A member of the RNA family "M-box riboswitch aptamer (ykoK leader)" from Alteribacter keqinensis, 168 nucleotides long. Gene Ontology terms of the family: response to magnesium ion and regulation of gene expression. A search with the family's covariance model found it, with a score of 146 bits. M-box riboswitch, also know as ykoK leader is described as a metaloregulatory RNA that sense divalent metals and function as a genetic control element of genes related to divalent metal transport in bacteria. Taxonomically the source falls in Alteribacter (Bacteria, Bacillati, Bacilli, Bacillaceae).
[Rfam]
RNA sequence: AACAUUCCUCGUUAGGUGAGGCUCCUGUACAGGAGAUACGCUACUGCCCAAAAAUGUCCAAAGACGCCAAUGGGUCAACUGGAAUCAUCGACAUAAGGUGUUUCCUAAUGUAGCUGGGUGUAUUCCCUAUGCCGUACAGUGCUAAAGCUCUACGAAUGGAGGGAAGCC
Numbered sequence: 001a002a003c004a005u006u007c008c009u010c011g012u013u014a015g016g017u018g019a020g021g022c023u024c025c026u027g028u029a030c031a032g033g034a035g036a037u038a039c040g041c042u043a044c045u046g047c048c049c050a051a052a053a054a055u056g057u058c059c060a061a062a063g064a065c066g067c068c069a070a071u072g073g074g075u076c077a078a079c080u081g082g083a084a085u086c087a088u089c090g091a092c093a094u095a096a097g098g099u100g101u102u103u104c105c106u107a108a109u110g111u112a113g114c115u116g117g118g119u120g121u122a123u124u125c126c127c128u129a130u131g132c133c134g135u136a137c138a139g140u141g142c143u144a145a146a147g148c149u150c151u152a153c154g155a156a157u158g159g160a161g162g163g164a165a166g167c168c
Base pairs, nucleotide, nucleotide: 005164006163007162008161009160010159011153012152013096015149016148017147020143021142022141025139026138027137028136029135030134032133033132040114041113042112043111044110046075047074048073049072050071055066056065057064058063081105082104083103084102087099088098089097116127117126118125